Annotation: The record is a 125-nucleotide RNA, which matches "LOOT RNA" in Rfam. It is one of the family's seed sequences. Rfam classes the family as a small RNA.
RNA sequence: GACCUAAACUCUUAAUUAAUUAAGGGCAUGGUCGACAAACUGAACAAACAUAGAGAUGGCCAUUCCGUCUCUGGUAUUGUUUGUUCAGUCUGUAGUCGAAAGGCUACUGGACAUCGAAAGGUGUC
Numbered sequence: 001g002a003c004c005u006a007a008a009c010u011c012u013u014a015a016u017u018a019a020u021u022a023a024g025g026g027c028a029u030g031g032u033c034g035a036c037a038a039a040c041u042g043a044a045c046a047a048a049c050a051u052a053g054a055g056a057u058g059g060c061c062a063u064u065c066c067g068u069c070u071c072u073g074g075u076a077u078u079g080u081u082u083g084u085u086c087a088g089u090c091u092g093u094a095g096u097c098g099a100a101a102g103g104c105u106a107c108u109g110g111a112c113a114u115c116g117a118a119a120g121g122u123g124u125c
Base pairs, nucleotide, nucleotide: 001033002032003031004030009026010025011024012023013022014021015020040088041087042086043085044084045083046082047081048080049079050078051073052072053071054070055069056068057067058066059065090109092107093106094105095104096103097102110125111124112123113122114121115120